[Rfam]
RNA: Bacterial RNase P class B
Organism: Faecalibacillus faecis
RNA sequence: AAUGACAGAUAAUCGCUGCUUCUUUGAAGUAGAGGAAAGUCCAGGCUGCCACAAUCUGCGAUGAUUGUAGUGUUUGUGCCUCACGAAUCAAUAAGUGAGGGUAGUGUAAACUAACGACAGAAGGAAAACCUAAGGGCAACUAUGGUAGAACUUCAUAAAUGGCUCCACAGAGACAAUUCCAUAGGAAACUAUGGGUGAAAAGAGGAAAGCUCCGCAAGGCAGAAACCCAAAUUUGGUAGGGGAAUCUUUAAAUCGGAAUUGAACGGGAUAAAGGACGUUUCGGCGUAGAUAAAUGGUUAUCAUGUACAGAACUUGGCUUAUUAUC
Numbered sequence: 001a002a003u004g005a006c007a008g009a010u011a012a013u014c015g016c017u018g019c020u021u022c023u024u025u026g027a028a029g030u031a032g033a034g035g036a037a038a039g040u041c042c043a044g045g046c047u048g049c050c051a052c053a054a055u056c057u058g059c060g061a062u063g064a065u066u067g068u069a070g071u072g073u074u075u076g077u078g079c080c081u082c083a084c085g086a087a088u089c090a091a092u093a094a095g096u097g098a099g100g101g102u103a104g105u106g107u108a109a110a111c112u113a114a115c116g117a118c119a120g121a122a123g124g125a126a127a128a129c130c131u132a133a134g135g136g137c138a139a140c141u142a143u144g145g146u147a148g149a150a151c152u153u154c155a156u157a158a159a160u161g162g163c164u165c166c167a168c169a170g171a172g173a174c175a176a177u178u179c180c181a182u183a184g185g186a187a188a189c190u191a192u193g194g195g196u197g198a199a200a201a202g203a204g205g206a207a208a209g210c211u212c213c214g215c216a217a218g219g220c221a222g223a224a225a226c227c228c229a230a231a232u233u234u235g236g237u238a239g240g241g242g243a244a245u246c247u248u249u250a251a252a253u254c255g256g257a258a259u260u261g262a263a264c265g266g267g268a269u270a271a272a273g274g275a276c277g278u279u280u281c282g283g284c285g286u287a288g289a290u291a292a293a294u295g296g297u298u299a300u301c302a303u304g305u306a307c308a309g310a311a312c313u314u315g316g317c318u319u320a321u322u323a324u325c
Stems, first nucleotide, its partner, number of pairs: 004325002007321001008301007016032006037319003041316005046222005051068006074217005079100006101115001102113004116212002119156001122153001128146003134141002162210002164206003179194006226241003245274006275286004